This 33-nucleotide RNA belongs to the Rfam family "DUF805b RNA".
The family is grouped with related families in Rfam's "DUF805 clan".
[Rfam]
RNA sequence: CAGGCGAAACCCGAAAAGCCAAACGAGUAGGAA
Numbered sequence: 001c002a003g004g005c006g007a008a009a010c011c012c013g014a015a016a017a018g019c020c021a022a023a024c025g026a027g028u029a030g031g032a033a
Stems, first nucleotide, its partner, number of pairs: 003020003011031002
Rfam classes the family as a cis-regulatory element.